Rfam assigns this 80-nucleotide RNA sequence from Triticum aestivum to the family "Small nucleolar RNA R12".
Its family is annotated with RNA processing and nucleolus in the Gene Ontology.
The organism belongs to Triticum, within Eukaryota.
snoR12 is a C/D box small nucleolar RNA, which acts as a methylation guide for 25S ribosomal RNA in plants. snoR12 has been alternatively named snoZ44 in Arabidopsis and snoZ131 in rice.
A search with the family's covariance model found it, with a score of 80 bits.
[Rfam]
RNA sequence: GUGAGGAUGAAGAAGAAAAUCAUUCGGAUUCCCAUUGAUAAUAUAAAUAUGAGAUCUUUAACCAGCUACUUCUGACUCAA
Numbered sequence: 001g002u003g004a005g006g007a008u009g010a011a012g013a014a015g016a017a018a019a020u021c022a023u024u025c026g027g028a029u030u031c032c033c034a035u036u037g038a039u040a041a042u043a044u045a046a047a048u049a050u051g052a053g054a055u056c057u058u059u060a061a062c063c064a065g066c067u068a069c070u071u072c073u074g075a076c077u078c079a080a
Stems, first nucleotide, its partner, number of pairs: 002079004